[Rfam]
RNA sequence: AUCAAAUGAUGAUAUCAAGAUGGUUUCGCAAUUUUUAUGAAAAUAAUGAUUAUACCAUCUCUUGGCUGUCUGAUGAU
Numbered sequence: 001a002u003c004a005a006a007u008g009a010u011g012a013u014a015u016c017a018a019g020a021u022g023g024u025u026u027c028g029c030a031a032u033u034u035u036u037a038u039g040a041a042a043a044u045a046a047u048g049a050u051u052a053u054a055c056c057a058u059c060u061c062u063u064g065g066c067u068g069u070c071u072g073a074u075g076a077u
Stems, first nucleotide, its partner, number of pairs: 001077004